CRISPR RNA direct repeat element: a 37-nucleotide RNA from Rhodoferax ferrireducens.
RNA sequence: GGAUCGCCCGGCAUUCAUGUCGGGCGCGGAUUGAAAC
Number, nucleotide and partner (000 for none) at each position: 001g000002g000003a000004u000005c026006g025007c024008c023009c022010g021011g020012c019013a018014u000015u000016c000017a000018u013019g012020u011021c010022g009023g008024g007025c006026g005027c000028g000029g000030a000031u000032u000033g000034a000035a000036a000037c000
The sequence is in the family's curated seed alignment.